[Rfam]
RNA: PreQ1 (pre queuosine) riboswitch aptamer
Organism: Aliicoccus persicus
RNA sequence: AAUAAAGAGGUUCUUAGCCGUAAACCCUCUAUAAAAAACUAAGAAACA
Numbered sequence: 001a002a003u004a005a006a007g008a009g010g011u012u013c014u015u016a017g018c019c020g021u022a023a024a025c026c027c028u029c030u031a032u033a034a035a036a037a038a039c040u041a042a043g044a045a046a047c048a
Stems, first nucleotide, its partner, number of pairs: 006030005015041002